[Rfam]
RNA sequence: UCAGUAGCUAGUCUCCGAGCCGCAGCUUUCUAAAGGGGUGUACCCCCACGAAGCCGGGGCCGUUGGGUGCUGCCGGAAACGGCGCCGCCUCCCUUUUGGAAAGGAGAACCGCCGCCGCUGUC
Numbered sequence: 001u002c003a004g005u006a007g008c009u010a011g012u013c014u015c016c017g018a019g020c021c022g023c024a025g026c027u028u029u030c031u032a033a034a035g036g037g038g039u040g041u042a043c044c045c046c047c048a049c050g051a052a053g054c055c056g057g058g059g060c061c062g063u064u065g066g067g068u069g070c071u072g073c074c075g076g077a078a079a080c081g082g083c084g085c086c087g088c089c090u091c092c093c094u095u096u097u098g099g100a101a102a103g104g105a106g107a108a109c110c111g112c113c114g115c116c117g118c119u120g121u122c
Base pairs, nucleotide, nucleotide: 004115012107013106014105015104016103019060020059021058023056025054026053028052029051030050035046036045037044065090066089067088068087069086071084072083073082074081075080091099092098
Shown here is a 122-nucleotide RNA sequence from Geoanaerobacter pelophilus, a member of the family "Molybdenum/Tungsten riboswitch aptamer (Moco RNA motif)". Lineage of the source: Bacteria > Desulfuromonadia > Geobacterales > Geobacteraceae > Geoanaerobacter.